This 71-nucleotide RNA sequence from Pseudomonas fulva belongs to the Rfam family "tRNA". The match comes from Rfam's covariance-model search (59 bits). The source organism's lineage runs through Bacteria, Pseudomonadati, Pseudomonadota, Pseudomonadaceae and Pseudomonas fulva. Rfam 15.1 lists 5,335,975 matches to the family in 14,413 species.
RNA sequence: GGCUGAGUAGCAGAGUGGUUAUGCACCGGAUUGCAAAUCCGUGAACGCCGGUUCGAUUCCGACCUCAGCCU
Numbered sequence: 001g002g003c004u005g006a007g008u009a010g011c012a013g014a015g016u017g018g019u020u021a022u023g024c025a026c027c028g029g030a031u032u033g034c035a036a037a038u039c040c041g042u043g044a045a046c047g048c049c050g051g052u053u054c055g056a057u058u059c060c061g062a063c064c065u066c067a068g069c070c071u
Stems, first nucleotide, its partner, number of pairs: 001070007010024003027041004047063001049061003